The record is a 78-nucleotide RNA from Octodon degus, which matches "Small nucleolar RNA SNORD19" in Rfam.
The family is grouped with related families in Rfam's "SNORD19 clan".
It scores 90 bits against the family's covariance model.
RNA sequence: GAGGUAUGAGGAAAACAUCUAAAUCAGUCUGAUUGUAUCUGAAGACUGAUAAGAUCCAACUCUGACCUCAAUUCUGCU
Dot-bracket structure: ((((.............................................................)))).........
Its family is annotated with RNA processing and nucleolus in the Gene Ontology.